[Rfam]
This 129-nucleotide sequence from Gasterosteus aculeatus belongs to the Rfam family "U4atac minor spliceosomal RNA".
The match comes from Rfam's covariance-model search (93 bits).
Pairs were carried over by alignment from the consensus structure, which is taken from published work.
The family is grouped with related families in Rfam's "U4 clan".
A reference for the family is Lorkovic et al. (2005), "Evolutionary conservation of minor U12-type spliceosome between plants and humans", RNA.

RNA sequence: UCUUUCCUUGUCAUGGGGUGGCUUGGGGGACUCAAUGAACGCGUAGUGAGAGCCUCCCUGCUAACACCAGACCAACACAUGCGCGUCACCCGGGCGUCACGCCCGGGCUAUGACGCAAUUUUUGGAACC
Numbered sequence: 001u002c003u004u005u006c007c008u009u010g011u012c013a014u015g016g017g018g019u020g021g022c023u024u025g026g027g028g029g030a031c032u033c034a035a036u037g038a039a040c041g042c043g044u045a046g047u048g049a050g051a052g053c054c055u056c057c058c059u060g061c062u063a064a065c066a067c068c069a070g071a072c073c074a075a076c077a078c079a080u081g082c083g084c085g086u087c088a089c090c091c092g093g094g095c096g097u098c099a100c101g102c103c104c105g106g107g108c109u110a111u112g113a114c115g116c117a118a119u120u121u122u123u124g125g126a127a128c129c
Base pairs, nucleotide, nucleotide: 006018007017008016009015021061022060026056027055028054029053031052032051033050039047040046083116084115085114086113087112088111089107090106091105092104093103094102
Background
The family has 61 seed sequences and 1,648 matches in Rfam 15.1. U4atac is an essential component of the minor U12-type spliceosome complex which is required for removal of the rarer class of eukaryotic introns (AT-AC, U12-type). Its family is annotated with spliceosomal tri-snRNP complex assembly, pre-mRNA 5'-splice site binding and U4atac snRNP in the Gene Ontology.